[Rfam]
RNA sequence: CACUCAUCAAGACCGGAGUGAGGGACAAGGCCCGAUCCUCAAUUUGAGGGCGACCUCCGGGGCAACCGGCGACGAUUUCGUCGCAUCAGGUGCCAAGUCCUGCGGGUUUCCCGGAAGAUGAGAG
Numbered sequence: 001c002a003c004u005c006a007u008c009a010a011g012a013c014c015g016g017a018g019u020g021a022g023g024g025a026c027a028a029g030g031c032c033c034g035a036u037c038c039u040c041a042a043u044u045u046g047a048g049g050g051c052g053a054c055c056u057c058c059g060g061g062g063c064a065a066c067c068g069g070c071g072a073c074g075a076u077u078u079c080g081u082c083g084c085a086u087c088a089g090g091u092g093c094c095a096a097g098u099c100c101u102g103c104g105g106g107u108u109u110c111c112c113g114g115a116a117g118a119u120g121a122g123a124g
Stems, first nucleotide, its partner, number of pairs: 001124001003122006013060005061094004066090002068087002071084001098116001103113004
RNA: SAM riboswitch aptamer (S box leader)
Organism: Algimonas arctica